A member of the RNA family "c-di-GMP-I riboswitch aptamer" from Candidatus Brocadia fulgida, 107 nucleotides long.

[Rfam]
RNA sequence: GGACGAUAAAGGCAAAUCCUGAGUGAUCAGGGGGCGCAAAGGAAAGGGUCUUUUGUAGGGGCGUAUUGCAUACGCCCUCAUUGCAGGAAGAUAGCCUUACUGCGGAA
Numbered sequence: 001g002g003a004c005g006a007u008a009a010a011g012g013c014a015a016a017u018c019c020u021g022a023g024u025g026a027u028c029a030g031g032g033g034g035c036g037c038a039a040a041g042g043a044a045a046g047g048g049u050c051u052u053u054u055g056u057a058g059g060g061g062c063g064u065a066u067u068g069c070a071u072a073c074g075c076c077c078u079c080a081u082u083g084c085a086g087g088a089a090g091a092u093a094g095c096c097u098u099a100c101u102g103c104g105g106a107a
Base pairs, nucleotide, nucleotide: 012037013036017032018031019030020029021028022027040101041100043098045097046096047095048092049091050090051089052088053087054086

Annotation: The organism belongs to Candidatus Brocadia, within Bacteria. From the family's description: GEMM was predicted in a large-scale screen for bacterial structured RNA regulatory elements.